[Rfam]
RNA sequence: AACCGAAAAAGGCAAACCAUUCGAAAGGAUGGGACGCAAAGCUACUGGCCUAAAUCCUGUUUAGGACAUGGUCGCAGGGUUGCCGGA
Numbered sequence: 001a002a003c004c005g006a007a008a009a010a011g012g013c014a015a016a017c018c019a020u021u022c023g024a025a026a027g028g029a030u031g032g033g034a035c036g037c038a039a040a041g042c043u044a045c046u047g048g049c050c051u052a053a054a055u056c057c058u059g060u061u062u063a064g065g066a067c068a069u070g071g072u073c074g075c076a077g078g079g080u081u082g083c084c085g086g087a
Stems, first nucleotide, its partner, number of pairs: 012037002017032006040081004045077003048072003055066004
Dot-bracket structure: ...........((...((((((....))))))...))..((((.((((((....((((....))))...)))..)))))))......
The family of this 87-nucleotide RNA sequence from Candidatus Brocadia fulgida is "c-di-GMP-I riboswitch aptamer". It scores 88 bits against the family's covariance model. The base pairs follow the family's consensus structure, which is taken from published work. Its family is annotated with cyclic-di-GMP binding in the Gene Ontology.